[Rfam]
RNA sequence: CUGCUGUGAUGGGAAUAUUUUUCAUCAACAGCAUCUCGCCUCGUGUGAAUGGUGAUGACUCUGGGCUGAGCAG
Numbered sequence: 001c002u003g004c005u006g007u008g009a010u011g012g013g014a015a016u017a018u019u020u021u022u023c024a025u026c027a028a029c030a031g032c033a034u035c036u037c038g039c040c041u042c043g044u045g046u047g048a049a050u051g052g053u054g055a056u057g058a059c060u061c062u063g064g065g066c067u068g069a070g071c072a073g
Stems, first nucleotide, its partner, number of pairs: 002072003008026004

The family of this 73-nucleotide sequence from Sterrhoptilus dennistouni is "Small nucleolar RNA SNORD56".
The match comes from Rfam's covariance-model search (46 bits).
Its family is annotated with nucleolus and RNA processing in the Gene Ontology.
By type it is a C/D-box small nucleolar RNA.